[Rfam]
U8 small nucleolar RNA: a 135-nucleotide RNA from Aquarana catesbeiana.
RNA sequence: UUGUCAGAGAGGUUGAUCCUUACCUAUUUCUCCUUUUAGAGAAACAAGCAUAAUGAACAGAAGAGGAUGAGUGUGUGAUUACACCAAGCUCCCCACCACUCGGUACUGACAUCUCAGAGCGUGUGUUAUUCUGAG
Numbered sequence: 001u002u003g004u005c006a007g008a009g010a011g012g013u014u015g016a017u018c019c020u021u022a023c024c025u026a027u028u029u030c031u032c033c034u035u036u037u038a039g040a041g042a043a044a045c046a047a048g049c050a051u052a053a054u055g056a057a058c059a060g061a062a063g064a065g066g067a068u069g070a071g072u073g074u075g076u077g078a079u080u081a082c083a084c085c086a087a088g089c090u091c092c093c094c095a096c097c098a099c100u101c102g103g104u105a106c107u108g109a110c111a112u113c114u115c116a117g118a119g120c121g122u123g124u125g126u127u128a129u130u131c132u133g134a135g
Stems, first nucleotide, its partner, number of pairs: 024048002028043005069091002072088001074086001076081001095124002097121001099119003103115001

The family has 55 seed sequences and 1,597 matches in Rfam 15.1.
It scores 49 bits against the family's covariance model.
Pairs were carried over by alignment from the consensus structure, which is taken from published work.
A reference for the family is Peculis et al. (2001), "The U8 snoRNA gene family: identification and characterization of distinct, functional U8 genes in Xenopus", Gene.
The organism belongs to Aquarana, within Eukaryota.
By type it is a C/D-box small nucleolar RNA.